[Rfam]
RNA sequence: UGAGCCGACCGGACGAACGCGACGCGCCGAACUACCGCUUUGACAGCGGCCAGCGGACGCCGAGGAAAGUCUGGACUCCACAGAGCACGGUGGUUGCUAACAGCAACCCGGGGCGACCCGCGGGCAAGUGCAACAGAAAGUAGACCGCCGUUUCCUCACUCCGUUCGGAAACGAACGCUGUGCGGAACCGGUAAGGGUGAAACGGUGCGGUAAGAGCGCACCAGUACCGUCAGCGAUGGCGGUAGCUGGGUAAACCCCACUGGGAGCAAGGCAUCACGGCUCGCCACUGGCGGGCCUGCUCAGGUGAUUGAGGGCUGCUCGCCCAAGCCUGAAGGUAGCUGCUUGAACCAACUGGCAACGGUUGGUCUAGAUGGAUGUUCGUCGCGCCACCCACACGGGCGGCGUACAGAAUCCGGCUUAUAGGUCGACUCAUUCG
Numbered sequence: 001u002g003a004g005c006c007g008a009c010c011g012g013a014c015g016a017a018c019g020c021g022a023c024g025c026g027c028c029g030a031a032c033u034a035c036c037g038c039u040u041u042g043a044c045a046g047c048g049g050c051c052a053g054c055g056g057a058c059g060c061c062g063a064g065g066a067a068a069g070u071c072u073g074g075a076c077u078c079c080a081c082a083g084a085g086c087a088c089g090g091u092g093g094u095u096g097c098u099a100a101c102a103g104c105a106a107c108c109c110g111g112g113g114c115g116a117c118c119c120g121c122g123g124g125c126a127a128g129u130g131c132a133a134c135a136g137a138a139a140g141u142a143g144a145c146c147g148c149c150g151u152u153u154c155c156u157c158a159c160u161c162c163g164u165u166c167g168g169a170a171a172c173g174a175a176c177g178c179u180g181u182g183c184g185g186a187a188c189c190g191g192u193a194a195g196g197g198u199g200a201a202a203c204g205g206u207g208c209g210g211u212a213a214g215a216g217c218g219c220a221c222c223a224g225u226a227c228c229g230u231c232a233g234c235g236a237u238g239g240c241g242g243u244a245g246c247u248g249g250g251u252a253a254a255c256c257c258c259a260c261u262g263g264g265a266g267c268a269a270g271g272c273a274u275c276a277c278g279g280c281u282c283g284c285c286a287c288u289g290g291c292g293g294g295c296c297u298g299c300u301c302a303g304g305u306g307a308u309u310g311a312g313g314g315c316u317g318c319u320c321g322c323c324c325a326a327g328c329c330u331g332a333a334g335g336u337a338g339c340u341g342c343u344u345g346a347a348c349c350a351a352c353u354g355g356c357a358a359c360g361g362u363u364g365g366u367c368u369a370g371a372u373g374g375a376u377g378u379u380c381g382u383c384g385c386g387c388c389a390c391c392c393a394c395a396c397g398g399g400c401g402g403c404g405u406a407c408a409g410a411a412u413c414c415g416g417c418u419u420a421u422a423g424g425u426c427g428a429c430u431c432a433u434u435c436g
Stems, first nucleotide, its partner, number of pairs: 001432004006427005011421001012383007020062002023059002027055001067419003071416005076266004083320004088262005093107005108122001109120004123257002128255002130251002145196002147192004152187004204222006224246001225244008270340003300332006312324004347366008
RNA: Bacterial RNase P class A